Record summary
Shown here is an 80-nucleotide sequence from Mus musculus, a member of the family "mir-1954 microRNA precursor family".

RNA sequence: GUCAGCCAGAACUGCAGAGUGAGACCCUGUUGUUUGUUUGUUUGUUUGAGACGGGGUUUCUCUGUGUAGCCCUGGCUAUC
Numbered sequence: 001g002u003c004a005g006c007c008a009g010a011a012c013u014g015c016a017g018a019g020u021g022a023g024a025c026c027c028u029g030u031u032g033u034u035u036g037u038u039u040g041u042u043u044g045u046u047u048g049a050g051a052c053g054g055g056g057u058u059u060c061u062c063u064g065u066g067u068a069g070c071c072c073u074g075g076c077u078a079u080c
Stems, first nucleotide, its partner, number of pairs: 004077006012069005018063002021060011
Dot-bracket structure: ...((((((..(((((.((.(((((((((((..................))))))))))).)).)))))..))))))...
It is one of the family's seed sequences.